[Rfam]
RNA sequence: AUCUGACUUAGUUAAGGGGCAAAGAUUAAUUCAAUAAAAAAGAGGCCGUACUGGUCUCUUUUUUCCUUAUCUGAGGCAUUUUGAGGAGUCCUGCAAAUUUUCUUUGCAGUUCUCUCAAGCAUCCUCGGACAUUU
Dot-bracket structure: ...((.(((......))).))...............((...(((((.......)))))..))........((((((...((((.((((..(((.............)))..))))))))...))))))......
About this RNA:
Small nucleolar RNA U19: a 134-nucleotide RNA sequence from Cannabis sativa. The family has 3 seed sequences and 421 matches in Rfam 15.1. Taxonomically the source falls in Cannabis (Eukaryota, Tracheophyta, Mesangiospermae, Rosales). On this family, see Marker et al., Curr Biol 2002: "Experimental RNomics: identification of 140 candidates for small non-messenger RNAs in the plant Arabidopsis thaliana".